[Rfam]
RNA sequence: UUCACGAAGGGCGAUGGUGCUCCGCCUAUUUGAACCGCUGCAAGGCUGAUGGCUCCCACUCAAAU
Dot-bracket structure: .........((((..[[.[[[.))))..........(((....)))....]]].]].........
Rfam assigns this 65-nucleotide RNA from Mucilaginibacter pedocola to the family "Fluoride riboswitch aptamer (crcB RNA motif)".
The match comes from Rfam's covariance-model search (42 bits).
Lineage of the source: Bacteria > Pseudomonadati > Bacteroidota > Sphingobacteriaceae > Mucilaginibacter.
The literature on the family includes a 2012 paper in Science by Baker et al., "Widespread genetic switches and toxicity resistance proteins for fluoride".
Pairs were carried over by alignment from the consensus structure, which is taken from published work.